The family of this 124-nucleotide RNA sequence from Myotis brandtii is "Small nucleolar RNA SNORA28". On this family, see Huttenhofer et al., EMBO J 2001: "RNomics: an experimental approach that identifies 201 candidates for novel, small, non-messenger RNAs in mouse". Rfam 15.1 lists 922 matches to the family in 535 species. Its Rfam clan is "SNORA28 clan". The source organism's lineage runs through Eukaryota, Opisthokonta, Chordata, Yangochiroptera and Myotis. Its family is annotated with RNA processing and nucleolus in the Gene Ontology. Rfam's curators write: ACA28 is a member of the H/ACA class of snoRNA that guide the sites of modification of uridines to pseudouridines.

[Rfam]
RNA sequence: CCCUUCCUCUCUGAAAUCAAUAAAAAUAUAUUUUUAAAAAUUUGAGCUUACUAUAGCAACCAAGUCUAACCGAUUCCGGUGCUCUCUUCUCUACGAGACAAGUGGUUAUAUAGACGUAGACGGU
Numbered sequence: 001c002c003c004u005u006c007c008u009c010u011c012u013g014a015a016a017u018c019a020a021u022a023a024a025a026a027u028a029u030a031u032u033u034u035u036a037a038a039a040a041u042u043u044g045a046g047c048u049u050a051c052u053a054u055a056g057c058a059a060c061c062a063a064g065u066c067u068a069a070c071c072g073a074u075u076c077c078g079g080u081g082c083u084c085u086c087u088u089c090u091c092u093a094c095g096a097g098a099c100a101a102g103u104g105g106u107u108a109u110a111u112a113g114a115c116g117u118a119g120a121c122g123g124u
Stems, first nucleotide, its partner, number of pairs: 007046003010039001012037001014034003019029001062117001064115005073109002077105001079103002085098004